[Rfam]
This 155-nucleotide RNA sequence from Felis catus belongs to the Rfam family "U12 minor spliceosomal RNA". A reference for the family is Tarn and Steitz (1997), "Pre-mRNA splicing: the discovery of a new spliceosome doubles the challenge", Trends Biochem Sci.

RNA sequence: AUGCCUUAAACUUAUGAGUAAAAAAAAUAACGAUUCAGGGUGAUGCCUGAAUCUUCACUGCUAAUGUGAGACGAGACAAAUUUUUAAGUGGGUAAAAGUCACCCCUAAAGUGACCCACCUACUUCAAGGGAUGCCUGGGAAUCAUGAUCUUCCCA
Numbered sequence: 001a002u003g004c005c006u007u008a009a010a011c012u013u014a015u016g017a018g019u020a021a022a023a024a025a026a027a028u029a030a031c032g033a034u035u036c037a038g039g040g041u042g043a044u045g046c047c048u049g050a051a052u053c054u055u056c057a058c059u060g061c062u063a064a065u066g067u068g069a070g071a072c073g074a075g076a077c078a079a080a081u082u083u084u085u086a087a088g089u090g091g092g093u094a095a096a097a098g099u100c101a102c103c104c105c106u107a108a109a110g111u112g113a114c115c116c117a118c119c120u121a122c123u124u125c126a127a128g129g130g131a132u133g134c135c136u137g138g139g140a141a142u143c144a145u146g147a148u149c150u151u152c153c154c155a
Stems, first nucleotide, its partner, number of pairs: 006021003032053008054070005089155004096150001098148004105139002108136001110134003114130003

Rfam 15.1 lists 2,106 matches to the family in 1,170 species.